[Rfam]
RNA sequence: AAAUGUCCUCUUUUAGUAUAUGUCCAGUAGGUUUCCUCAAGGAGGAAGCCCCA
Numbered sequence: 001a002a003a004u005g006u007c008c009u010c011u012u013u014u015a016g017u018a019u020a021u022g023u024c025c026a027g028u029a030g031g032u033u034u035c036c037u038c039a040a041g042g043a044g045g046a047a048g049c050c051c052c053a
Base pairs, nucleotide, nucleotide: 030050031049032048033047034046035045036044037043
This 53-nucleotide sequence from Oncorhynchus tshawytscha belongs to the Rfam family "U7 small nuclear RNA".
Rfam 15.1 lists 10,439 matches to the family in 569 species.